Notes
The family of this 101-nucleotide sequence from Pseudomonas sp. HLS-6 is "Pseudomon-Rho RNA". Pairs were carried over by alignment from the consensus structure, which is taken from published work. The family's RNA type in Rfam is cis-regulatory element.
RNA sequence: UUCGGCCUCGCACUGUUUCUUCGGUGCCCUCUGCACGCCGUCGCCGACGCAUCCCCAAUUCGAAUCAGUACGCGAUCCUGUCGCCUUCUUUGCGGCGCGGC
Numbered sequence: 001u002u003c004g005g006c007c008u009c010g011c012a013c014u015g016u017u018u019c020u021u022c023g024g025u026g027c028c029c030u031c032u033g034c035a036c037g038c039c040g041u042c043g044c045c046g047a048c049g050c051a052u053c054c055c056c057a058a059u060u061c062g063a064a065u066c067a068g069u070a071c072g073c074g075a076u077c078c079u080g081u082c083g084c085c086u087u088c089u090u091u092g093c094g095g096c097g098c099g100g101c
Stems, first nucleotide, its partner, number of pairs: 010027006037101004042097005072084005